[Rfam]
RNA sequence: AUAAUUUAACUAAGCAGGCCAUGAACUUGUAAAAGGUUUGUAGGCUGGGCCUUAAUUGGCAGCAGGAUAGUAAUGAACCUGUGGGACAAUA
Numbered sequence: 001a002u003a004a005u006u007u008a009a010c011u012a013a014g015c016a017g018g019c020c021a022u023g024a025a026c027u028u029g030u031a032a033a034a035g036g037u038u039u040g041u042a043g044g045c046u047g048g049g050c051c052u053u054a055a056u057u058g059g060c061a062g063c064a065g066g067a068u069a070g071u072a073a074u075g076a077a078c079c080u081g082u083g084g085g086a087c088a089a090u091a
Base pairs, nucleotide, nucleotide: 009090011088015085017046018045019044020043021041022040023039024038025037026036049060050059051058062082063081064080065079066078